[Rfam]
RNA sequence: GAUGAAUGCUAAAGACUGGAAGACAUGAGAAUUGAAAAUCAUGUCUGGAAGAGAAUAGUAGGGU
Numbered sequence: 001g002a003u004g005a006a007u008g009c010u011a012a013a014g015a016c017u018g019g020a021a022g023a024c025a026u027g028a029g030a031a032u033u034g035a036a037a038a039u040c041a042u043g044u045c046u047g048g049a050a051g052a053g054a055a056u057a058g059u060a061g062g063g064u
Stems, first nucleotide, its partner, number of pairs: 007060004016051002021046008
RNA: mir-9412 microRNA precursor family